[Rfam]
RNA: U12 minor spliceosomal RNA
Organism: Tropilaelaps mercedesae
RNA sequence: GUGCCAAAACAUCAAGAGUAAGGAGAAUUGCGUUUGGGUUUGAAACCCCAGACGACCACUUUGAUGGUGCAAAUUUUUGAAAGGGAGAGGUUCUGAACGAGGUGGCCUGCCUACUUUGUAGGCUGCACGUUCGGAGUCUGCCCU
Numbered sequence: 001g002u003g004c005c006a007a008a009a010c011a012u013c014a015a016g017a018g019u020a021a022g023g024a025g026a027a028u029u030g031c032g033u034u035u036g037g038g039u040u041u042g043a044a045a046c047c048c049c050a051g052a053c054g055a056c057c058a059c060u061u062u063g064a065u066g067g068u069g070c071a072a073a074u075u076u077u078u079g080a081a082a083g084g085g086a087g088a089g090g091u092u093c094u095g096a097a098c099g100a101g102g103u104g105g106c107c108u109g110c111c112u113a114c115u116u117u118g119u120a121g122g123c124u125g126c127a128c129g130u131u132c133g134g135a136g137u138c139u140g141c142c143c144u
Stems, first nucleotide, its partner, number of pairs: 004023002008019001032053007055068004082144004088139007097131001102126003106122005